[Rfam]
RNA sequence: CAGAAAUAGGAGUUCACUUGCAGCCCAAAACACCCUCUGCAUCAACUUCAUGCUGUUUUGGACUGAAGGGAGCUCCUUCUUCUU
Numbered sequence: 001c002a003g004a005a006a007u008a009g010g011a012g013u014u015c016a017c018u019u020g021c022a023g024c025c026c027a028a029a030a031c032a033c034c035c036u037c038u039g040c041a042u043c044a045a046c047u048u049c050a051u052g053c054u055g056u057u058u059u060g061g062a063c064u065g066a067a068g069g070g071a072g073c074u075c076c077u078u079c080u081u082c083u084u
Base pairs, nucleotide, nucleotide: 008077009076010075011074012073013072014071015070017069018068019067022064023063025061026060027059028058029057
Dot-bracket structure: .......((((((((.(((..((.(((((...........................))))).))..))))))))))).......